[Rfam]
RNA: caulobacter sRNA CC1840
Organism: Phenylobacterium zucineum
RNA sequence: AUCGGUCGGUCGCCGCGCUCUCCCGUCCCUCGAAGCGGCGGACGAUCCGGAUGGAACGACACGCCCAUCGGCGGCGCGCUGCUCGCAAGAGCGGCGCGCC
Numbered sequence: 001a002u003c004g005g006u007c008g009g010u011c012g013c014c015g016c017g018c019u020c021u022c023c024c025g026u027c028c029c030u031c032g033a034a035g036c037g038g039c040g041g042a043c044g045a046u047c048c049g050g051a052u053g054g055a056a057c058g059a060c061a062c063g064c065c066c067a068u069c070g071g072c073g074g075c076g077c078g079c080u081g082c083u084c085g086c087a088a089g090a091g092c093g094g095c096g097c098g099c100c
Stems, first nucleotide, its partner, number of pairs: 004047005010041007073100009083089001